[Rfam]
RNA sequence: UUUAAUAGUGGCCGAGUACGCUGAGCGGUGAUAAUGGGUAGAUCGUAAAGACGCUGCAAGUACGUCCCUGUAAGCUCGGAUUGCGCCAUCCAUGGCGCAAACGCUUU
Number, nucleotide and partner (000 for none) at each position: 001u000002u000003u000004a000005a107006u000007a105008g104009u103010g102011g000012c028013c027014g026015a000016g000017u000018a000019c000020g000021c000022u000023g000024a000025g000026c014027g013028g012029u000030g077031a076032u000033a000034a000035u000036g000037g000038g000039u000040a000041g066042a065043u064044c000045g063046u062047a061048a000049a000050g000051a000052c056053g000054c000055u000056g052057c000058a000059a000060g000061u047062a046063c045064g043065u042066c041067c000068c000069u000070g000071u000072a000073a000074g000075c000076u031077c030078g000079g000080a000081u100082u099083g098084c097085g096086c095087c094088a093089u000090c000091c000092a000093u088094g087095g086096c085097g084098c083099a082100a081101a000102c010103g009104c008105u007106u000107u005
The family of this 107-nucleotide sequence from Pectobacterium atrosepticum is "Yersinia sRNA 224".
The family's RNA type in Rfam is small RNA.
Taxonomically the source falls in Pectobacterium atrosepticum (Bacteria, Pseudomonadati, Gammaproteobacteria, Pectobacteriaceae).
On this family, see Righetti et al., Proc Natl Acad Sci U S A 2016: "Temperature-responsive in vitro RNA structurome of Yersinia pseudotuberculosis".
Its family is annotated with response to temperature stimulus in the Gene Ontology.
It scores 73 bits against the family's covariance model.